[Rfam]
Annotation
Bacterial small subunit ribosomal RNA: a 588-nucleotide part of an RNA from Brachyspira murdochii. Lineage of the source: Bacteria > Pseudomonadati > Brachyspirales > Brachyspira > Brachyspira murdochii. On this family, see Cannone et al., BMC Bioinformatics 2002: "The comparative RNA web (CRW) site: an online database of comparative sequence and structure information for ribosomal, intron, and other RNAs". The sequence is in the family's curated seed alignment. Its Rfam clan is "SSU clan". The base pairs follow the family's consensus structure, which is taken from published work. Gene Ontology terms of the family: structural constituent of ribosome and ribosome.
RNA sequence: UGACGGGUCCCCGCACAAGUGGUGGAGCAUGUGGUUUAAUUCGAUGAUACGCGAAAAACCUUACCUGGGUUUGAAUUGUAAGAUCAAUGAUUUAGAGAUAAGUCAGACCGCAAGGAGAUUUUACAUAGGUGCUACAUGGCUGUCGUCAGCUCGUGUCGUGAGAUGUUGGGUUAAGUCCCGCAACGAGCGCAACCCUCACCCUUUGUUGCUACCGAGUAAUGUCGGGCACUCUUAGGGGACUGCCUACGUUCAAGUAGGAGGAAGGUGGGGAUGAUGUCAAGCCCUCAUGGCCCUUAUGUCCAGGGCUACACACGUGCUACAAUGGCAAGUACAAAGAGAAGCGAGACCGCGAGGUGGAGCAAAACUCAAAAAAGUUGCCUCAGUUCGGAUUGGAGUCUGAAACUCGACUCCAUGAAGUUGGAAUCACUAGUAAUCGUAGAUCAGAACGCUACGGUGAAUACGUUCCCGGGGAUUGUACACACCGCCCGUCACGCCAUCGGAGUUGGUUUUACCUGAAGUCGUUAGCCUAACCGCAAGGGGGGCGGCGCCGAAGGUGGGACUGAUGAUGAGGGUGAAGUCGUAACAAGG
Dot-bracket structure: (((((.(((((((.((..((((((.((((((((((....((((........))))........(((((((......((.(((((...(((((((....)))))))..((....))..))))).))..((.((((..((((((.((...(((((((((....)))..((((......))))..)))))).....((((.((((..(...((..(((......)))))....)..))))..((.(((((......))))).)).....))))....)).).)))...))))))))....)))))))...)).)))))))).)...(((((.(.....(((..((...(((....)))...))....))).....).)))))......(....(((((((........)))))))....).....))))).....(((((((.........)))))))......))...)))))))))).))..(.(..((...((((.(((..((((((((((((....(.((((.((((..((....)).)))))))).)...))))))))))))..))).))))....))...)..).
Numbered sequence: 001u002g003a004c005g006g007g008u009c010c011c012c013g014c015a016c017a018a019g020u021g022g023u024g025g026a027g028c029a030u031g032u033g034g035u036u037u038a039a040u041u042c043g044a045u046g047a048u049a050c051g052c053g054a055a056a057a058a059c060c061u062u063a064c065c066u067g068g069g070u071u072u073g074a075a076u077u078g079u080a081a082g083a084u085c086a087a088u089g090a091u092u093u094a095g096a097g098a099u100a101a102g103u104c105a106g107a108c109c110g111c112a113a114g115g116a117g118a119u120u121u122u123a124c125a126u127a128g129g130u131g132c133u134a135c136a137u138g139g140c141u142g143u144c145g146u147c148a149g150c151u152c153g154u155g156u157c158g159u160g161a162g163a164u165g166u167u168g169g170g171u172u173a174a175g176u177c178c179c180g181c182a183a184c185g186a187g188c189g190c191a192a193c194c195c196u197c198a199c200c201c202u203u204u205g206u207u208g209c210u211a212c213c214g215a216g217u218a219a220u221g222u223c224g225g226g227c228a229c230u231c232u233u234a235g236g237g238g239a240c241u242g243c244c245u246a247c248g249u250u251c252a253a254g255u256a257g258g259a260g261g262a263a264g265g266u267g268g269g270g271a272u273g274a275u276g277u278c279a280a281g282c283c284c285u286c287a288u289g290g291c292c293c294u295u296a297u298g299u300c301c302a303g304g305g306c307u308a309c310a311c312a313c314g315u316g317c318u319a320c321a322a323u324g325g326c327a328a329g330u331a332c333a334a335a336g337a338g339a340a341g342c343g344a345g346a347c348c349g350c351g352a353g354g355u356g357g358a359g360c361a362a363a364a365c366u367c368a369a370a371a372a373a374g375u376u377g378c379c380u381c382a383g384u385u386c387g388g389a390u391u392g393g394a395g396u397c398u399g400a401a402a403c404u405c406g407a408c409u410c411c412a413u414g415a416a417g418u419u420g421g422a423a424u425c426a427c428u429a430g431u432a433a434u435c436g437u438a439g440a441u442c443a444g445a446a447c448g449c450u451a452c453g454g455u456g457a458a459u460a461c462g463u464u465c466c467c468g469g470g471g472a473u474u475g476u477a478c479a480c481a482c483c484g485c486c487c488g489u490c491a492c493g494c495c496a497u498c499g500g501a502g503u504u505g506g507u508u509u510u511a512c513c514u515g516a517a518g519u520c521g522u523u524a525g526c527c528u529a530a531c532c533g534c535a536a537g538g539g540g541g542g543c544g545g546c547g548c549c550g551a552a553g554g555u556g557g558g559a560c561u562g563a564u565g566a567u568g569a570g571g572g573u574g575a576a577g578u579c580g581u582a583a584c585a586a587g588g
Stems, first nucleotide, its partner, number of pairs: 001479002003476003007473007015463002019427005024320001026318008034309002040055004064304007077125002080122005088105007108115002128293002131291004137287002139282003142278001144276002149188006155164003167180004194270004199237004205231001209226002213224003240261002243258005324379005330373001336367003341360002346355003386417001391412007433455007482587001484584001487580002492574004497569003502564012518549001520547004525543004531538002